[Rfam]
RNA sequence: AUACUUACCUGACAGGGGAGAUGCCAUGAUCACGAAGGUGGUUAUCCCAGGGCGAGGCUUAUCCAUUGCACUCUGGAUGUGCUGACCCCUGCGAUUUCCCCAAAUGUGAGAUACGUGACUGCAUAAUUUGUGGUAGUGGGGGACUAUGUUCCUGUUCUCCCCUA
Dot-bracket structure: ............(((((((.(.(((((..........)))))).))))((((.(.(((.(((((..........))))).)))..))))).((.(((..(.......).)).)..)).)))................((((((..(((....)))..)))))).
Shown here is a 164-nucleotide RNA from Phyllostomus discolor, a member of the family "U1 spliceosomal RNA".